[Rfam]
RNA: tRNA
RNA sequence: GCCGCGGUAGUAUAGCCAGGCCAUUAUGCGGGCCUGUCGAGCCCGUGACCCGGGUUCAAAUCCCGGCCGCGGCG
Number, nucleotide and partner (000 for none) at each position: 001g073002c072003c071004g070005c069006g068007g067008u000009a000010g027011u026012a025013u000014a000015g000016c000017c000018a000019g000020g000021c000022c000023a000024u000025u012026a011027u010028g000029c045030g044031g043032g042033c041034c000035u000036g000037u000038c000039g000040a000041g033042c032043c031044c030045g029046u000047g000048a000049c000050c066051c065052g064053g063054g062055u000056u000057c000058a000059a000060a000061u000062c054063c053064c052065g051066g050067c007068c006069g005070c004071g003072g002073c001074g000